[Rfam]
RNA sequence: AAGCUUAGGAUGAUAAAAAAAAAACAAAUAUCUUAGCGGAUUUCAGUGAGGUUUUAUCGAUCAAUGAUCUGACUUUGUUACACACACUGAAGCUU
Numbered sequence: 001a002a003g004c005u006u007a008g009g010a011u012g013a014u015a016a017a018a019a020a021a022a023a024a025c026a027a028a029u030a031u032c033u034u035a036g037c038g039g040a041u042u043u044c045a046g047u048g049a050g051g052u053u054u055u056a057u058c059g060a061u062c063a064a065u066g067a068u069c070u071g072a073c074u075u076u077g078u079u080a081c082a083c084a085c086a087c088u089g090a091a092g093c094u095u
Base pairs, nucleotide, nucleotide: 001095002094003093004092005091
This 95-nucleotide sequence from Brassica oleracea belongs to the Rfam family "Small nucleolar RNA R11/Z151". Rfam 15.1 lists 802 matches to the family in 218 species. The match comes from Rfam's covariance-model search (96 bits). The base pairs follow the family's consensus structure, which was predicted with PFOLD. Its family is annotated with RNA processing and nucleolus in the Gene Ontology.